Small nucleolar RNA SNORD17: a 243-nucleotide sequence from Ornithorhynchus anatinus. It is annotated as a C/D-box small nucleolar RNA. NCBI's taxonomy places the organism under Eukaryota, Eumetazoa, Craniata, Euteleostomi, Ornithorhynchus. Its family is annotated with RNA processing and nucleolus in the Gene Ontology. The snoRNA HBI-43 belongs to the C/D family of snoRNAs, guiding 2'O-ribose methylation at position U3797 of the 28S rRNA. Pseudouridylation in position U3797 is predicted to be guided by the H/ACA snoRNA ACA48.

RNA sequence: GUGGAAUGACAGUUGAAGUUUAUCCAUUCUCGGAGUAUGUCAUGCUACUCUUCUGCAGCACCAGGUUCCUGUUCCAGAACCUCCGUGCCAUGCAGUUUCCAAAUGCCCCUUGUGUCUUGUGGUGUUCUGCUGGAGACGGCUGGUGUGUGUUUGGUGUCUGCCCGCGGGAGAGGGUGGUGACAGCAGGAGUGGAUGCAAAGAUCCUGUUCCAUCUGCAAAGAUGAACGGUGACAGUCGGAUCAA
Numbered sequence: 001g002u003g004g005a006a007u008g009a010c011a012g013u014u015g016a017a018g019u020u021u022a023u024c025c026a027u028u029c030u031c032g033g034a035g036u037a038u039g040u041c042a043u044g045c046u047a048c049u050c051u052u053c054u055g056c057a058g059c060a061c062c063a064g065g066u067u068c069c070u071g072u073u074c075c076a077g078a079a080c081c082u083c084c085g086u087g088c089c090a091u092g093c094a095g096u097u098u099c100c101a102a103a104u105g106c107c108c109c110u111u112g113u114g115u116c117u118u119g120u121g122g123u124g125u126u127c128u129g130c131u132g133g134a135g136a137c138g139g140c141u142g143g144u145g146u147g148u149g150u151u152u153g154g155u156g157u158c159u160g161c162c163c164g165c166g167g168g169a170g171a172g173g174g175u176g177g178u179g180a181c182a183g184c185a186g187g188a189g190u191g192g193a194u195g196c197a198a199a200g201a202u203c204c205u206g207u208u209c210c211a212u213c214u215g216c217a218a219a220g221a222u223g224a225a226c227g228g229u230g231a232c233a234g235u236c237g238g239a240u241c242a243a
Stems, first nucleotide, its partner, number of pairs: 012241001014239001018235003024228002027225003031220001035216002039184002043179008051170003054164002058088004064081004069077002092161004097156001105148002107145001111139001113138006120132005186214002189212005196206002